[Rfam]
RNA sequence: AAUUCUAUUUAUAGGAACAAAGAGAAGCAGAUCUAUUCUAUAUCAGAAAAGUACAAAUACGCAAUGGGA
Numbered sequence: 001a002a003u004u005c006u007a008u009u010u011a012u013a014g015g016a017a018c019a020a021a022g023a024g025a026a027g028c029a030g031a032u033c034u035a036u037u038c039u040a041u042a043u044c045a046g047a048a049a050a051g052u053a054c055a056a057a058u059a060c061g062c063a064a065u066g067g068g069a
Base pairs, nucleotide, nucleotide: 003022004021006019008017009016010015043068044067051060052059053058
RNA: Plastid-clpP 5UTR RNA